[Rfam]
RNA sequence: GAGCAGACAGUUAUCCCUUUCUAGCUUGAUACCUGUGGCUCUAGAGGGAGUCAGUCUGCCAAAUUAAACAGGGGAGGCUCUGCCUUUGUCCAGCACAGUUAGGCACUGAUGUGGGCUGCAGGCUUUCCGUACACUG
Numbered sequence: 001g002a003g004c005a006g007a008c009a010g011u012u013a014u015c016c017c018u019u020u021c022u023a024g025c026u027u028g029a030u031a032c033c034u035g036u037g038g039c040u041c042u043a044g045a046g047g048g049a050g051u052c053a054g055u056c057u058g059c060c061a062a063a064u065u066a067a068a069c070a071g072g073g074g075a076g077g078c079u080c081u082g083c084c085u086u087u088g089u090c091c092a093g094c095a096c097a098g099u100u101a102g103g104c105a106c107u108g109a110u111g112u113g114g115g116c117u118g119c120a121g122g123c124u125u126u127c128c129g130u131a132c133a134c135u136g
Stems, first nucleotide, its partner, number of pairs: 003059006020045005025038002069129001071128006079122003088116003094111002096108003
This 136-nucleotide RNA from Chelonia mydas belongs to the Rfam family "Small nucleolar RNA SNORA56". Gene Ontology terms of the family: RNA processing and nucleolus. Lineage of the source: Eukaryota > Testudines > Cryptodira > Cheloniidae > Chelonia. The family is grouped with related families in Rfam's "SNORA56 clan".